[Rfam]
Nucleotides: 095
Stems, first nucleotide, its partner, number of pairs: 008081002011046004016040001017032005051076004057070004
Number, partner (000 for none) and nucleotide at each position: 001000g002000u003000g004000u005000g006000a007000g008081u009080u010000a011046a012045g013044g014043g015000g016040u017032g018031c019030c020029c021028g022000a023000u024000a025000u026000u027000u028021c029020g030019g031018g032017c033000u034000g035000a036000g037000a038000u039000g040016a041000g042000a043014c044013c045012c046011u047000c048000u049000g050000a051076c052075c053074u054073g055000a056000u057070c058069c059068a060067g061000a062000c063000a064000a065000u066000g067060c068059u069058g070057g071000c072000g073054u074053a075052g076051g077000a078000a079000a080009a081008a082000a083000a084000g085000a086000a087000g088000g089000a090000u091000a092000a093000a094000c095000a
Shown here is a 95-nucleotide RNA from Prevotella sp. oral taxon 317, a member of the family "TPP riboswitch aptamer (THI element)". The base pairs follow the family's consensus structure, which is taken from published work. A search with the family's covariance model found it, with a score of 62 bits.